[Rfam]
Shown here is a 54-nucleotide RNA from Conger conger, a member of the family "UnaL2 LINE 3' element". About the family: The eel long interspersed element (LINE) UnaL2 and its partner short interspersed element (SINE) share a conserved 3' tail containing a stem-loop that is critical for their retrotransposition. The family's RNA type in Rfam is cis-regulatory element. The family's consensus secondary structure is taken from published work. Rfam 15.1 lists 493,311 matches to the family in 99 species.
RNA sequence: AUGGUGUUUGCGUGUACGUCGCUCUGGAUAAGAGUGUCUGCAAAAUGCCUUUAA
Numbered sequence: 001a002u003g004g005u006g007u008u009u010g011c012g013u014g015u016a017c018g019u020c021g022c023u024c025u026g027g028a029u030a031a032g033a034g035u036g037u038c039u040g041c042a043a044a045a046u047g048c049c050u051u052u053a054a
Base pairs, nucleotide, nucleotide: 013043014041015040016039020036021035022034023033024032025031